[Rfam]
RNA sequence: GUGUGAACAUGAAAAUCACAGAUGAAAUGGUCCUCUGUCCUGUCUGUGGUUGGAUGACAGACCACAC
Numbered sequence: 001g002u003g004u005g006a007a008c009a010u011g012a013a014a015a016u017c018a019c020a021g022a023u024g025a026a027a028u029g030g031u032c033c034u035c036u037g038u039c040c041u042g043u044c045u046g047u048g049g050u051u052g053g054a055u056g057a058c059a060g061a062c063c064a065c066a067c
Stems, first nucleotide, its partner, number of pairs: 001067005014051010029039003